[Rfam]
RNA sequence: UUGCGGGUGACCGGAUGUCUGAAGGAAGCCCGAGGCAAAACGCUGGCCUGACGAACAGGAAGCGGAUACGAGGCGACGUGUUGGGGUAAGGCAGCAAGAAUUGUCAAAGCCCAAAACGUGUCCGGACGACACGGCGUAUAUCCGACAGGCCUAAGCGGGAAAGCAGGUGUGU
Numbered sequence: 001u002u003g004c005g006g007g008u009g010a011c012c013g014g015a016u017g018u019c020u021g022a023a024g025g026a027a028g029c030c031c032g033a034g035g036c037a038a039a040a041c042g043c044u045g046g047c048c049u050g051a052c053g054a055a056c057a058g059g060a061a062g063c064g065g066a067u068a069c070g071a072g073g074c075g076a077c078g079u080g081u082u083g084g085g086g087u088a089a090g091g092c093a094g095c096a097a098g099a100a101u102u103g104u105c106a107a108a109g110c111c112c113a114a115a116a117c118g119u120g121u122c123c124g125g126a127c128g129a130c131a132c133g134g135c136g137u138a139u140a141u142c143c144g145a146c147a148g149g150c151c152u153a154a155g156c157g158g159g160a161a162a163g164c165a166g167g168u169g170u171g172u
Stems, first nucleotide, its partner, number of pairs: 002015001004013003028172002031169002035164002041157004046150005063144005073137003077133007084112004090105004

Overview: A member of the RNA family "Group II catalytic intron D1-D4-3" from Dyella sp. M7H15-1, 172 nucleotides long. The organism belongs to Dyella, within Bacteria.